[Rfam]
RNA sequence: AAAUAGCCCUGAUUGUAGUGGAAAGCUCCCGAUUUUUUUCGGGACUUGCAACGAAAAGCAGGAAAAUGG
Numbered sequence: 001a002a003a004u005a006g007c008c009c010u011g012a013u014u015g016u017a018g019u020g021g022a023a024a025g026c027u028c029c030c031g032a033u034u035u036u037u038u039u040c041g042g043g044a045c046u047u048g049c050a051a052c053g054a055a056a057a058g059c060a061g062g063a064a065a066a067u068g069g
Stems, first nucleotide, its partner, number of pairs: 009061003013057002018052002023047003028043005
About this RNA:
This 69-nucleotide RNA sequence from Flavobacterium aquatile belongs to the Rfam family "Flavo-1 RNA". The family's consensus secondary structure is taken from published work. Rfam classes the family as a small RNA.